RNA sequence: UAAUCGAUUAAAGCGCCUGAACUACCAUGAGUGUAGUUGACGAGGAGAGGGAGUAUCGAGUGUUCGGCGGAUGCCCUCCGGUUGUAGCAUGACAACCGUUAGACUUUUGGAGAAAACAAAGAGGCAACUCUUUGCACAAAGCCAGAAGUAACCAUGCCU
Numbered sequence: 001u002a003a004u005c006g007a008u009u010a011a012a013g014c015g016c017c018u019g020a021a022c023u024a025c026c027a028u029g030a031g032u033g034u035a036g037u038u039g040a041c042g043a044g045g046a047g048a049g050g051g052a053g054u055a056u057c058g059a060g061u062g063u064u065c066g067g068c069g070g071a072u073g074c075c076c077u078c079c080g081g082u083u084g085u086a087g088c089a090u091g092a093c094a095a096c097c098g099u100u101a102g103a104c105u106u107u108u109g110g111a112g113a114a115a116a117c118a119a120a121g122a123g124g125c126a127a128c129u130c131u132u133u134g135c136a137c138a139a140a141g142c143c144a145g146a147a148g149u150a151a152c153c154a155u156g157c158c159u
Base pairs, nucleotide, nucleotide: 020038021037022036023035024034025033047078048077049076050075051074056067057066058065059064079098080097081096082095083094084093103149104148105147106146107145108144109143117134118133119132120131121130122129123128

Shown here is a 159-nucleotide RNA sequence from Halalkalibacter krulwichiae, a member of the family "glmS glucosamine-6-phosphate activated ribozyme aptamer". The organism belongs to Halalkalibacter, within Bacteria. The family's consensus secondary structure is taken from published work. About the family: This entry contains a glucosamine-6-phosphate activated ribozyme that is found in the mRNA for GlmS. GlmS is an enzyme that uses fructose-6-phosphate and glutamine to generate glucosamine-6-phosphate. The ribozyme catalyses self cleavage of the glmS mRNA that is thought to regulate GlmS activity. A reference for the family is Winkler et al. (2004), "Control of gene expression by a natural metabolite-responsive ribozyme", Nature.